[Rfam]
RNA sequence: AAAUGACAAAGCCCAACCUAUUGCAAAAUAGGGGCAGAAAGCCACAGAUCUUAUGAAGUUAGCUGGGUUACCAUU
Numbered sequence: 001a002a003a004u005g006a007c008a009a010a011g012c013c014c015a016a017c018c019u020a021u022u023g024c025a026a027a028a029u030a031g032g033g034g035c036a037g038a039a040a041g042c043c044a045c046a047g048a049u050c051u052u053a054u055g056a057a058g059u060u061a062g063c064u065g066g067g068u069u070a071c072c073a074u075u
Base pairs, nucleotide, nucleotide: 012037017032018031019030020029021028022027040069041068042067043066045065046064047063048060050058

Background: This 75-nucleotide RNA sequence from a Desulfobacteraceae bacterium belongs to the Rfam family "c-di-GMP-I riboswitch aptamer".